[Rfam]
RNA sequence: ACUAAAGGAACAAAGGCUAAGUUCGCGACGUCCUGGGGCUGCGAUUACUCACCCCAUCAAAAAGCGUUGUCGCAACCCCUUUGUGACCUACAUCCUGUAGG
Numbered sequence: 001a002c003u004a005a006a007g008g009a010a011c012a013a014a015g016g017c018u019a020a021g022u023u024c025g026c027g028a029c030g031u032c033c034u035g036g037g038g039c040u041g042c043g044a045u046u047a048c049u050c051a052c053c054c055c056a057u058c059a060a061a062a063a064g065c066g067u068u069g070u071c072g073c074a075a076c077c078c079c080u081u082u083g084u085g086a087c088c089u090a091c092a093u094c095c096u097g098u099a100g101g
Stems, first nucleotide, its partner, number of pairs: 011083006025073005087101005
Dot-bracket structure: ..........((((((........(((((.......................................)))))....))))))...(((((.....)))))
RNA: Bacillaceae-1 RNA